[Rfam]
RNA sequence: ACGGGGAAUACAGCAGUAAUUCUUUUUUUUUCCUGUUAUAUACAGGAAAAAAAAAGAAUUACUGCUGUAUUCCCCGUAGACGUA
Numbered sequence: 001a002c003g004g005g006g007a008a009u010a011c012a013g014c015a016g017u018a019a020u021u022c023u024u025u026u027u028u029u030u031u032c033c034u035g036u037u038a039u040a041u042a043c044a045g046g047a048a049a050a051a052a053a054a055a056g057a058a059u060u061a062c063u064g065c066u067g068u069a070u071u072c073c074c075c076g077u078a079g080a081c082g083u084a
Base pairs, nucleotide, nucleotide: 001077002076003075004074005073006072007071009069010068013065014064015063016062017061020058021057022056023055024054025053026052027051028050029049030048031047032046034044
Dot-bracket structure: (((((((.((..(((((..(((((((((((((.(.........).)))))))))))))..)))))..)).))))))).......
The record is an 84-nucleotide RNA sequence from Megalops atlanticus, which matches "mir-322 microRNA precursor family" in Rfam. The match comes from Rfam's covariance-model search (64 bits). Gene Ontology terms of the family: miRNA-mediated post-transcriptional gene silencing and RISC complex. NCBI's taxonomy places the organism under Eukaryota, Gnathostomata, Elopocephalai, Megalopidae, Megalops. The base pairs follow the family's consensus structure, which was predicted with RNAalifold.